[Rfam]
RNA sequence: AUGAGCUCUCGGUGGUGAGAACUGAAUUCCAAGGGUUGUGAGUUUCAGCUCAGCCCCUGGGUCUCAGUUCUUCCGCCUGGCGUUCCCCG
Numbered sequence: 001a002u003g004a005g006c007u008c009u010c011g012g013u014g015g016u017g018a019g020a021a022c023u024g025a026a027u028u029c030c031a032a033g034g035g036u037u038g039u040g041a042g043u044u045u046c047a048g049c050u051c052a053g054c055c056c057c058u059g060g061g062u063c064u065c066a067g068u069u070c071u072u073c074c075g076c077c078u079g080g081c082g083u084u085c086c087c088c089g
Stems, first nucleotide, its partner, number of pairs: 008080002011077003018071008033057003
RNA: mir-146 microRNA precursor family